Background:
Shown here is a 50-nucleotide RNA from Solimonas fluminis, a member of the family "Guanidine-II riboswitch aptamer (mini-ykkC)". Gene Ontology term of the family: regulation of gene expression. From the family's description: Simpler in structure and has fewer highly conserved nucleotide positions than the ykkC-yxkD leader. Despite this each of its two stem-loop structures directly bind free guanidine.
RNA sequence: ACACGGGGACGACCCCGGCGAAUCGUCGGAUUACCCCGGGGACGACCCCG
Numbered sequence: 001a002c003a004c005g006g007g008g009a010c011g012a013c014c015c016c017g018g019c020g021a022a023u024c025g026u027c028g029g030a031u032u033a034c035c036c037c038g039g040g041g042a043c044g045a046c047c048c049c050g
Stems, first nucleotide, its partner, number of pairs: 002020001004018001005016004037050005